RNA sequence: UACGUGCUCCGGGGUCGGUGUGAAUCCGAACCGGCGGUGACAGUCCGCGAACCCCUCCGCUUCGGCGGUGGGGCCGAUCCGGUGGAAUUCCGGAACCGACGGUGAUGAGGCGAGUGAUCUCCUCUAGUCCGGAUAGGAGGCAGCACGGU
Numbered sequence: 001u002a003c004g005u006g007c008u009c010c011g012g013g014g015u016c017g018g019u020g021u022g023a024a025u026c027c028g029a030a031c032c033g034g035c036g037g038u039g040a041c042a043g044u045c046c047g048c049g050a051a052c053c054c055c056u057c058c059g060c061u062u063c064g065g066c067g068g069u070g071g072g073g074c075c076g077a078u079c080c081g082g083u084g085g086a087a088u089u090c091c092g093g094a095a096c097c098g099a100c101g102g103u104g105a106u107g108a109g110g111c112g113a114g115u116g117a118u119c120u121c122c123u124c125u126a127g128u129c130c131g132g133a134u135a136g137g138a139g140g141c142a143g144c145a146c147g148g149u
Stems, first nucleotide, its partner, number of pairs: 003147006009140002016028003032098002034048004043096002052073002078094005100131003

Shown here is a 149-nucleotide RNA sequence from Microbacterium sp. T32, a member of the family "FMN riboswitch aptamer (RFN element)".
The source organism's lineage runs through Bacteria, Bacillati, Actinomycetota, Actinomycetes and Microbacterium.